[Rfam]
RNA: nhaA-I RNA
Organism: Azoarcus olearius
RNA sequence: GGGUGUCAUGCCGGCCGGUUGCCGGAAGACAGGAUUCGUGUCGGUCGGGCCGCCGCA
Numbered sequence: 001g002g003g004u005g006u007c008a009u010g011c012c013g014g015c016c017g018g019u020u021g022c023c024g025g026a027a028g029a030c031a032g033g034a035u036u037c038g039u040g041u042c043g044g045u046c047g048g049g050c051c052g053c054c055g056c057a
Stems, first nucleotide, its partner, number of pairs: 005030003009026001011025004039057003043054003